[Rfam]
Nucleotides: 173
Base pairs, nucleotide, nucleotide: 006168008166009165010164011163016079017078018077019076020075021074022073023072024071032064033063034062035061038058039057083110084109085108086107087106088105089104090103092101093100094099111137112136113135114134115133116132117131118130119129120128121127139158140157141156142155143154145152
Number, partner (000 for none) and nucleotide at each position: 001000a002000c003000c004000u005000a006168u007000g008166g009165u010164a011163g012000a013000g014000g015000u016079g017078c018077u019076g020075u021074a022073a023072u024071u025000a026000a027000g028000a029000g030000u031000a032064u033063u034062u035061g036000u037000u038058u039057u040000u041000a042000g043000c044000u045000g046000g047000c048000a049000g050000g051000c052000g053000u054000u055000u056000a057039g058038a059000u060000u061035c062034a063033a064032a065000g066000a067000a068000a069000g070000g071024a072023a073022u074021u075020a076019c077018a078017g079016c080000c081000g082000a083110a084109g085108a086107a087106a088105g089104u090103a091000a092101c093100u094099u095000g096000g097000c098000a099094a100093a101092g102000a103090u104089a105088c106087u107086u108085u109084c110083u111137g112136g113135g114134u115133u116132u117131g118130c119129a120128c121127a122000u123000a124000a125000u126000a127121u128120g129119u130118g131117u132116a133115a134114a135113u136112c137111u138000g139158u140157c141156a142155c143154u144000u145152g146000a147000u148000u149000u150000a151000a152145u153000u154143a155142g156141u157140g158139g159000a160000g161000a162000g163011c164010u165009a166008c167000a168006a169000a170000g171000g172000u173000a
A member of the RNA family "Lysine riboswitch aptamer" from Clostridium sp. cel8, 173 nucleotides long. The organism belongs to Clostridium, within Bacteria.